Shown here is a 128-nucleotide sequence from Palleronia marisminoris, a member of the family "Alphaproteobacterial ar14". A search with the family's covariance model found it, with a score of 62 bits. Lineage of the source: Bacteria > Pseudomonadati > Pseudomonadota > Rhodobacterales > Palleronia. The pairing is the family consensus, mapped onto this sequence.
RNA sequence: GUAUAGAGCGGCGACAUUCACCUCCUCCCGAAUGUCGCCGCUACAAGAUCAGCAUACGCGCGCCGACCUCCUCCCCGGCGCACGUCAAUGGCGGCGAUGCCCACCUCCUCCCGGGCAUCGCCGCUUUU
Numbered sequence: 001g002u003a004u005a006g007a008g009c010g011g012c013g014a015c016a017u018u019c020a021c022c023u024c025c026u027c028c029c030g031a032a033u034g035u036c037g038c039c040g041c042u043a044c045a046a047g048a049u050c051a052g053c054a055u056a057c058g059c060g061c062g063c064c065g066a067c068c069u070c071c072u073c074c075c076c077g078g079c080g081c082a083c084g085u086c087a088a089u090g091g092c093g094g095c096g097a098u099g100c101c102c103a104c105c106u107c108c109u110c111c112c113g114g115g116c117a118u119c120g121c122c123g124c125u126u127u128u
Stems, first nucleotide, its partner, number of pairs: 007042003011038007056085003060081005092123011